Record summary: This 99-nucleotide RNA from Paenibacillus sp. NEAU-GSW1 belongs to the Rfam family "Purine riboswitch aptamer". The organism belongs to Paenibacillus, within Bacteria. A search with the family's covariance model found it, with a score of 64 bits. Pairs were carried over by alignment from the consensus structure, which is taken from published work.
RNA sequence: UCCGCCAAAUAGUCGAAUACUCGUAUAUCCUCGGGAAUCGGCCCGAAAGUUUCUACCCGAAAACCGUAUUUUCGGACUACGAGCAUGCUGGAACAAUUG
Numbered sequence: 001u002c003c004g005c006c007a008a009a010u011a012g013u014c015g016a017a018u019a020c021u022c023g024u025a026u027a028u029c030c031u032c033g034g035g036a037a038u039c040g041g042c043c044c045g046a047a048a049g050u051u052u053c054u055a056c057c058c059g060a061a062a063a064c065c066g067u068a069u070u071u072u073c074g075g076a077c078u079a080c081g082a083g084c085a086u087g088c089u090g091g092a093a094c095a096a097u098u099g
Base pairs, nucleotide, nucleotide: 018085020083021082022081023080024079025078031046032045033044034043035042057075058074059073060072061071062070063069